Shown here is a 76-nucleotide sequence from Myotis davidii, a member of the family "mir-9229 microRNA precursor family". A search with the family's covariance model found it, with a score of 73 bits. Pairs were carried over by alignment from the consensus structure, which was predicted with RNAalifold.

[Rfam]
RNA sequence: AAGACCCCCCUAUGGAGCAGGAUUUGCUUCAGUGGGGCUUUGGUGCUCACUGAGUCUGCCCCUUGAGUGUUGCUUG
Numbered sequence: 001a002a003g004a005c006c007c008c009c010c011u012a013u014g015g016a017g018c019a020g021g022a023u024u025u026g027c028u029u030c031a032g033u034g035g036g037g038c039u040u041u042g043g044u045g046c047u048c049a050c051u052g053a054g055u056c057u058g059c060c061c062c063u064u065g066a067g068u069g070u071u072g073c074u075u076g
Stems, first nucleotide, its partner, number of pairs: 001075003007069001009067001011065002014062002017059003021056003029053008037044002